[Rfam]
A member of the RNA family "Plant signal recognition particle RNA" from Momordica charantia, 304 nucleotides long. Clan: SRP clan. The organism belongs to Momordica, within Eukaryota. The family's RNA type in Rfam is non-coding RNA gene.

RNA sequence: GCCGAGUUUGAUCACUCAAACUUGUAACCCAAGUGGGGGGCACCAAGAUGGUUGAAGGGUUAGUCCUACCAACUGGAUCGGGCUUUGUCAAGAGGUUCACUGGGCCGCCCAUUUCAAGCAGGGAGUGUGACUUCACAUUGUUGGCGAAAGCUGAUGAUGCAUUGCCUUUGAAUUGGAGGAAACCGCGUGAGGCUGGUUCACAGAGCAACGUCACCUUCUAUUCUCGACGGUGAAAGGAUAACGGGCCGGCUCUUCCAAGCCCAAUAGAGCACACUUGGCAGCUCUCAACCCGACAACUAUUUUU
Numbered sequence: 001g002c003c004g005a006g007u008u009u010g011a012u013c014a015c016u017c018a019a020a021c022u023u024g025u026a027a028c029c030c031a032a033g034u035g036g037g038g039g040g041c042a043c044c045a046a047g048a049u050g051g052u053u054g055a056a057g058g059g060u061u062a063g064u065c066c067u068a069c070c071a072a073c074u075g076g077a078u079c080g081g082g083c084u085u086u087g088u089c090a091a092g093a094g095g096u097u098c099a100c101u102g103g104g105c106c107g108c109c110c111a112u113u114u115c116a117a118g119c120a121g122g123g124a125g126u127g128u129g130a131c132u133u134c135a136c137a138u139u140g141u142u143g144g145c146g147a148a149a150g151c152u153g154a155u156g157a158u159g160c161a162u163u164g165c166c167u168u169u170g171a172a173u174u175g176g177a178g179g180a181a182a183c184c185g186c187g188u189g190a191g192g193c194u195g196g197u198u199c200a201c202a203g204a205g206c207a208a209c210g211u212c213a214c215c216u217u218c219u220a221u222u223c224u225c226g227a228c229g230g231u232g233a234a235a236g237g238a239u240a241a242c243g244g245g246c247c248g249g250c251u252c253u254u255c256c257a258a259g260c261c262c263a264a265u266a267g268a269g270c271a272c273a274c275u276u277g278g279c280a281g282c283u284c285u286c287a288a289c290c291c292g293a294c295a296a297c298u299a300u301u302u303u304u
Base pairs, nucleotide, nucleotide: 001041002040003039004023005022006021007020008019009018010017011016028038029036030035045303046302047301048300049299050298051297052296053295054294057291058290059289060288061287062285063284066281067280069278070277071276072275074273076272079269080262081261082260083259084258085257087255090254091253092252094251095250100249101248102247103246105244106243107242109237110236112235113234114233115232116231118228121225122224123223124222125221126220129166131164136159137158138157139156140155141154142153143152144151145150175218176217177216178215179214185211186210187209188208193203194202195201